[Rfam]
Shown here is a 213-nucleotide RNA sequence from Williamsia sterculiae, a member of the family "Actinobacteria sRNA Ms_IGR-5". The source organism's lineage runs through Bacteria, Bacillati, Actinomycetes, Nocardiaceae and Williamsia. It scores 122 bits against the family's covariance model.
RNA sequence: ACACGAGGAAGGAGGUGGUCUGGAAUUGCAUGACAUACGGACACGUGAGGUGACCAUCCGCUAGACGCACGACCGUGCUGCGAUUCGUUUCUGCGCCGGACGCGCUCUGGCGAAUCCCAGGUGGUCACCCGGCCCCCGCGCCCUGGUCUGUCCAGACCAGAACGAGCCCACGAGCUCGAGCCCGACCAUCGGGUGGCGCGGGGGUCGUUCCCG
Numbered sequence: 001a002c003a004c005g006a007g008g009a010a011g012g013a014g015g016u017g018g019u020c021u022g023g024a025a026u027u028g029c030a031u032g033a034c035a036u037a038c039g040g041a042c043a044c045g046u047g048a049g050g051u052g053a054c055c056a057u058c059c060g061c062u063a064g065a066c067g068c069a070c071g072a073c074c075g076u077g078c079u080g081c082g083a084u085u086c087g088u089u090u091c092u093g094c095g096c097c098g099g100a101c102g103c104g105c106u107c108u109g110g111c112g113a114a115u116c117c118c119a120g121g122u123g124g125u126c127a128c129c130c131g132g133c134c135c136c137c138g139c140g141c142c143c144u145g146g147u148c149u150g151u152c153c154a155g156a157c158c159a160g161a162a163c164g165a166g167c168c169c170a171c172g173a174g175c176u177c178g179a180g181c182c183c184g185a186c187c188a189u190c191g192g193g194u195g196g197c198g199c200g201g202g203g204g205u206c207g208u209u210c211c212c213g
Stems, first nucleotide, its partner, number of pairs: 014058006059112007067105002070102001073099003130207013143160006